Ribosomal protein L13 leader: a 58-nucleotide sequence from Aerococcus sanguinicola.
Rfam classes the family as a cis-regulatory leader.
The family's consensus secondary structure was predicted with CMfinder.
From the family's description: This family is a putative r-protein leader autoregulatory structure found in B. subtilis and other low-GC Gram-positive bacteria. It is located in the 5' untranslated regions of mRNAs encoding the L13-S9 (rplM-rpsI) ribosomal protein operon.
RNA sequence: GGUAUUGUUUGCCCCACGAUUGCCCCGGAAAUCAAUUGUGAAUUGCAACAAUCAGUCA
Numbered sequence: 001g002g003u004a005u006u007g008u009u010u011g012c013c014c015c016a017c018g019a020u021u022g023c024c025c026c027g028g029a030a031a032u033c034a035a036u037u038g039u040g041a042a043u044u045g046c047a048a049c050a051a052u053c054a055g056u057c058a
Base pairs, nucleotide, nucleotide: 006054007053009051010050011049015040016039017038018037019036020035021034022033